A member of the RNA family "Plastid-rps12 3UTR RNA" from Gossypium laxum, 95 nucleotides long. It scores 86 bits against the family's covariance model. Pairs were carried over by alignment from the consensus structure, which was predicted with LocARNA. The source organism's lineage runs through Eukaryota, Gunneridae, Pentapetalae, malvids and Gossypium. By type it is a cis-regulatory element. Plastid rpl20 is a non-coding RNA (ncRNA) recognised in plastids. It was found in the three prime untranslated region (3UTR) of rps12 gene, its 3UTR location sugest a role in transcript maduration.

RNA sequence: GAUUUUCAUUGGUGCAAAUCCAAUCUUGGAAUUUAAGAUGAGAAAAUUUUCCCCAUUGGUAGCAAAUUCUUAUCCAUCAAGUGGGGAAAUUCUAU
Numbered sequence: 001g002a003u004u005u006u007c008a009u010u011g012g013u014g015c016a017a018a019u020c021c022a023a024u025c026u027u028g029g030a031a032u033u034u035a036a037g038a039u040g041a042g043a044a045a046a047u048u049u050u051c052c053c054c055a056u057u058g059g060u061a062g063c064a065a066a067u068u069c070u071u072a073u074c075c076a077u078c079a080a081g082u083g084g085g086g087a088a089a090u091u092c093u094a095u
Base pairs, nucleotide, nucleotide: 009023010022011021012020051086052085053084054083055077056076058074059073060072061071062070